[Rfam]
RNA: Small nucleolar RNA snoR8a
RNA sequence: CACAGCGCGGUGAUUAUAAAACAUUCCUCGUACUGAAGACCCCACGGGGCUUGACAGACACGAAUACACCCAUAGAAUCUGAGCGCUG
Number, nucleotide and partner (000 for none) at each position: 001c000002a000003c088004a087005g000006c085007g084008c000009g000010g000011u000012g000013a000014u000015u000016a000017u000018a000019a000020a000021a000022c000023a000024u000025u000026c000027c000028u000029c000030g000031u000032a000033c000034u000035g000036a000037a000038g000039a000040c000041c000042c000043c000044a000045c000046g000047g000048g000049g000050c000051u000052u000053g000054a000055c000056a000057g000058a000059c000060a000061c000062g000063a000064a000065u000066a000067c000068a000069c000070c000071c000072a000073u000074a000075g000076a000077a000078u000079c000080u000081g000082a000083g000084c007085g006086c000087u004088g003